[Rfam]
RNA sequence: UGAGAGAACUAUGCUGAAGGAACUCGGCAAAUUGCACGCGUAACUUCGGAAGAAGCGUGACCCCUAUGCACGCAAGUGUGUGGGGGUGGCACAGACCAGGGGGUAGCGACUGUUUAUCAAAAACACAGGGCUCUGCGAAGUCGCAAGACGACGUAUAGGGUCUGACGCCUGCCCGGUGCUGGAAGGUUAAGAGGAGAGGUGCAAGCUUUGAAUCGAAGCCCCAGUAAACGGCGGCCGUAACUAUAACGGUCCUAAGGUAGCGAAAUUCCUUGUCGGGUAAGUUCCGACCUGCACGAAUGGCGUAACGACUUCCCCGCUGUCUCCAGCAUAGACUCA
Numbered sequence: 001u002g003a004g005a006g007a008a009c010u011a012u013g014c015u016g017a018a019g020g021a022a023c024u025c026g027g028c029a030a031a032u033u034g035c036a037c038g039c040g041u042a043a044c045u046u047c048g049g050a051a052g053a054a055g056c057g058u059g060a061c062c063c064c065u066a067u068g069c070a071c072g073c074a075a076g077u078g079u080g081u082g083g084g085g086g087u088g089g090c091a092c093a094g095a096c097c098a099g100g101g102g103g104u105a106g107c108g109a110c111u112g113u114u115u116a117u118c119a120a121a122a123a124c125a126c127a128g129g130g131c132u133c134u135g136c137g138a139a140g141u142c143g144c145a146a147g148a149c150g151a152c153g154u155a156u157a158g159g160g161u162c163u164g165a166c167g168c169c170u171g172c173c174c175g176g177u178g179c180u181g182g183a184a185g186g187u188u189a190a191g192a193g194g195a196g197a198g199g200u201g202c203a204a205g206c207u208u209u210g211a212a213u214c215g216a217a218g219c220c221c222c223a224g225u226a227a228a229c230g231g232c233g234g235c236c237g238u239a240a241c242u243a244u245a246a247c248g249g250u251c252c253u254a255a256g257g258u259a260g261c262g263a264a265a266u267u268c269c270u271u272g273u274c275g276g277g278u279a280a281g282u283u284c285c286g287a288c289c290u291g292c293a294c295g296a297a298u299g300g301c302g303u304a305a306c307g308a309c310u311u312c313c314c315c316g317c318u319g320u321c322u323c324c325a326g327c328a329u330a331g332a333c334u335c336a
Stems, first nucleotide, its partner, number of pairs: 001336004009331008018322003035059005044049001060087012088092001100315004105310002107307002111125003128163008136153001140149003166302004171232003176229002178225005185220003191214002196209005233251006252256001262289001272288006

Shown here is a 336-nucleotide part of an RNA from Kumtagia ephedrae, a member of the family "Bacterial large subunit ribosomal RNA". Rfam 15.1 lists 51,934 matches to the family in 10,816 species.